[Rfam]
RNA: SAM riboswitch aptamer (S box leader)
RNA sequence: UGCUCAUCGAGAGGGACUGAGGGAACGGCCCGACGAAGUCCCGGCAACCGCCACGAACCCCCUGCUUCGGCAGUCGUGGAAACGGUGCUAAUUCCGGCCCGCGGCGAAAGACGGCGUGGGGAAGAUGAGAG
Number, nucleotide and partner (000 for none) at each position: 001u131002g000003c129004u128005c127006a126007u125008c124009g000010a000011g000012a000013g042014g041015g040016a039017c038018u000019g000020a000021g031022g030023g029024a000025a000026c096027g095028g094029c023030c022031c021032g000033a000034c000035g000036a000037a000038g017039u016040c015041c014042c013043g089044g088045c087046a086047a000048c085049c084050g000051c079052c078053a077054c076055g075056a074057a000058c000059c000060c000061c000062c000063u000064g000065c000066u000067u000068c000069g000070g000071c000072a000073g000074u056075c055076g054077u053078g052079g051080a000081a000082a000083c000084g049085g048086u046087g045088c044089u043090a000091a000092u000093u123094c028095c027096g026097g000098c120099c119100c118101g117102c116103g115104g000105c000106g000107a000108a000109a000110g000111a000112c000113g000114g000115c103116g102117u101118g100119g099120g098121g000122a000123a093124g008125a007126u006127g005128a004129g003130a000131g001